[Rfam]
This 87-nucleotide RNA from Arminella tumorigenes belongs to the Rfam family "Glycine riboswitch aptamer". A search with the family's covariance model found it, with a score of 66 bits. Pairs were carried over by alignment from the consensus structure. Taxonomically the source falls in Arminella (Bacteria, Pseudomonadota, Hyphomicrobiales, Rhizobiaceae).

Nucleotides: 087
Stems, first nucleotide, its partner, number of pairs: 006082008020032004034067003037063002041061003047055002
Number, partner (000 for none) and nucleotide at each position: 001000a002000c003000a004000a005000c006082c007081c008080g009079a010078u011077u012076g013075g014000g015000a016000g017000a018000a019000u020032c021031c022030g023029g024000c025000u026000a027000u028000g029023c030022c031021g032020g033000u034067g035066c036065c037063g038062a039000a040000g041061g042060a043059g044000c045000a046000a047055c048054c049000g050000c051000c052000c053000c054048g055047g056000a057000a058000a059043c060042u061041c062038u063037c064000a065036g066035g067034c068000c069000c070000a071000a072000g073000g074000a075013c076012c077011a078010g079009u080008c081007g082006g083000g084000g085000g086000c087000a